[Rfam]
RNA sequence: GCAAAUAAAAGGCAAAACCGAUGAAAAUCGGCGGCGCAAAGCACGAGCCUAAGCUCUGAAUUUUCAAGGUACGGCGGUCGGGCUGCAUUU
Numbered sequence: 001g002c003a004a005a006u007a008a009a010a011g012g013c014a015a016a017a018c019c020g021a022u023g024a025a026a027a028u029c030g031g032c033g034g035c036g037c038a039a040a041g042c043a044c045g046a047g048c049c050u051a052a053g054c055u056c057u058g059a060a061u062u063u064u065c066a067a068g069g070u071a072c073g074g075c076g077g078u079c080g081g082g083c084u085g086c087a088u089u090u
Stems, first nucleotide, its partner, number of pairs: 012037002018031005040084003044080003047075003054069002057066003

Rfam assigns this 90-nucleotide RNA from Ruminococcus sp. CAG:353 to the family "c-di-GMP-I riboswitch aptamer". The organism belongs to Ruminococcus, within Bacteria.